The record is a 340-nucleotide part of an RNA from Cecembia lonarensis, which matches "Bacterial large subunit ribosomal RNA" in Rfam. A search with the family's covariance model found it, with a score of 2713 bits. Pairs were carried over by alignment from the consensus structure, which is taken from published work.
RNA sequence: CGAGUGAGUCAUGGCUAAGGAACUCGGCAAAAUUGCCCUGUAACUUCGGGAGAAGGGGCGCCUACCCAUGCGAAUGGGAGGCCGCAGUGAAAAGGCCCAGGCGACUGUUUAGCAAAAACACAUGGCUUUGCGAACUCGAAAGAGUAAGUAUAAGGCCUGACACCUGCCCGGUGCCGGAAGGUUAAGAGGGGAUGUUAUCGCAAGAGAAGCAUUGAAUUGAAGCCCCGGUAAACGGCGGCCGUAACUAUAACGGUCCUAAGGUAGCGAAAUUCCUUGUCGGGUAAGUUCCGACCUGCACGAAUGGUGUAACGAUCUGGGCGCUGUCUCAGCCAUGAGCUCG
Numbered sequence: 001c002g003a004g005u006g007a008g009u010c011a012u013g014g015c016u017a018a019g020g021a022a023c024u025c026g027g028c029a030a031a032a033u034u035g036c037c038c039u040g041u042a043a044c045u046u047c048g049g050g051a052g053a054a055g056g057g058g059c060g061c062c063u064a065c066c067c068a069u070g071c072g073a074a075u076g077g078g079a080g081g082c083c084g085c086a087g088u089g090a091a092a093a094g095g096c097c098c099a100g101g102c103g104a105c106u107g108u109u110u111a112g113c114a115a116a117a118a119c120a121c122a123u124g125g126c127u128u129u130g131c132g133a134a135c136u137c138g139a140a141a142g143a144g145u146a147a148g149u150a151u152a153a154g155g156c157c158u159g160a161c162a163c164c165u166g167c168c169c170g171g172u173g174c175c176g177g178a179a180g181g182u183u184a185a186g187a188g189g190g191g192a193u194g195u196u197a198u199c200g201c202a203a204g205a206g207a208a209g210c211a212u213u214g215a216a217u218u219g220a221a222g223c224c225c226c227g228g229u230a231a232a233c234g235g236c237g238g239c240c241g242u243a244a245c246u247a248u249a250a251c252g253g254u255c256c257u258a259a260g261g262u263a264g265c266g267a268a269a270u271u272c273c274u275u276g277u278c279g280g281g282u283a284a285g286u287u288c289c290g291a292c293c294u295g296c297a298c299g300a301a302u303g304g305u306g307u308a309a310c311g312a313u314c315u316g317g318g319c320g321c322u323g324u325c326u327c328a329g330c331c332a333u334g335a336g337c338u339c340g
Stems, first nucleotide, its partner, number of pairs: 001340004009335008018326003035059005044049001060082004065078005083087001095319007102311002106120003124157007131148001134145004161306004166236003171233002173229005180224003186218002191213005198205002237255006256260001266293001276292006